RNA sequence: AGUAAUUGUGAUGAGCCUACAGACCUGUAAUGAUUUGCGGGCAUGAUCGCAAUCAUUAAUGAACAUCUAAGGGACUGAAUUGUU
Numbered sequence: 001a002g003u004a005a006u007u008g009u010g011a012u013g014a015g016c017c018u019a020c021a022g023a024c025c026u027g028u029a030a031u032g033a034u035u036u037g038c039g040g041g042c043a044u045g046a047u048c049g050c051a052a053u054c055a056u057u058a059a060u061g062a063a064c065a066u067c068u069a070a071g072g073g074a075c076u077g078a079a080u081u082g083u084u
Base pairs, nucleotide, nucleotide: 002083003082004081005080006079